[Rfam]
RNA sequence: CGUGUGGUGUCCAACCUUAGAUUUGGAUAGCGACGCGGCCUAUAAAUGAGGU
Numbered sequence: 001c002g003u004g005u006g007g008u009g010u011c012c013a014a015c016c017u018u019a020g021a022u023u024u025g026g027a028u029a030g031c032g033a034c035g036c037g038g039c040c041u042a043u044a045a046a047u048g049a050g051g052u
Stems, first nucleotide, its partner, number of pairs: 001037005007031002011026004015020001
Dot-bracket structure: (((((.((..(((((....)..))))...)).)))))...............
L31-Gammaproteobacteria ribosomal protein leader: a 52-nucleotide RNA from Vibrio halioticoli. The literature on the family includes a 2020 paper in BMC Microbiol by Eckert and Weinberg, "Discovery of 20 novel ribosomal leader candidates in bacteria and archaea".